[Rfam]
A member of the RNA family "TPP riboswitch aptamer (THI element)" from Neisseria sp. oral taxon 014, 100 nucleotides long. Lineage of the source: Bacteria > Pseudomonadati > Pseudomonadota > Betaproteobacteria > Neisseria sp. oral taxon 014. A search with the family's covariance model found it, with a score of 67 bits. A reference for the family is Warner et al. (2014), "Validating fragment-based drug discovery for biological RNAs: lead fragments bind and remodel the TPP riboswitch specifically", Chem Biol.
RNA sequence: CUAACGAAACAGGGGUGCUGCCUGAUGUUCUGGCGGCUGAGAAAUACCCUUUACACCCGAUCGGGAUAAUACCUGCGUGGGGAGUUUUCACGGAUUCUGU
Numbered sequence: 001c002u003a004a005c006g007a008a009a010c011a012g013g014g015g016u017g018c019u020g021c022c023u024g025a026u027g028u029u030c031u032g033g034c035g036g037c038u039g040a041g042a043a044a045u046a047c048c049c050u051u052u053a054c055a056c057c058c059g060a061u062c063g064g065g066a067u068a069a070u071a072c073c074u075g076c077g078u079g080g081g082g083a084g085u086u087u088u089c090a091c092g093g094a095u096u097c098u099g100u
Stems, first nucleotide, its partner, number of pairs: 006088005011050004016044001017037005056081004062075004